[Rfam]
RNA sequence: UUGUGUCUUAGAGGUUGCGAUCGACAAAGAGUACUUUUGGUUAGGUCCAGGGAACCGUUUAUACCAAAAGGAAAGGUGUCUUCGCCGAAGCAAAUAUUCCACCCUCGGAAUAUUCGCUGGGACUGUGCUGAAAAAGCAUAGGACUGUCAUCGAUAAAUCACCCAGUUUAUCGACGAAGCGCUACUACACAC
Numbered sequence: 001u002u003g004u005g006u007c008u009u010a011g012a013g014g015u016u017g018c019g020a021u022c023g024a025c026a027a028a029g030a031g032u033a034c035u036u037u038u039g040g041u042u043a044g045g046u047c048c049a050g051g052g053a054a055c056c057g058u059u060u061a062u063a064c065c066a067a068a069a070g071g072a073a074a075g076g077u078g079u080c081u082u083c084g085c086c087g088a089a090g091c092a093a094a095u096a097u098u099c100c101a102c103c104c105u106c107g108g109a110a111u112a113u114u115c116g117c118u119g120g121g122a123c124u125g126u127g128c129u130g131a132a133a134a135a136g137c138a139u140a141g142g143a144c145u146g147u148c149a150u151c152g153a154u155a156a157a158u159c160a161c162c163c164a165g166u167u168u169a170u171c172g173a174c175g176a177a178g179c180g181c182u183a184c185u186a187c188a189c190a191c
Stems, first nucleotide, its partner, number of pairs: 006186001009183003017085004023080004034070008089118003093114008119145002123141007147176002150173008

Lysine riboswitch aptamer: a 191-nucleotide RNA from Anaerosolibacter carboniphilus. Taxonomically the source falls in Anaerosolibacter (Bacteria, Bacillota, Peptostreptococcales, Thermotaleaceae). It scores 103 bits against the family's covariance model.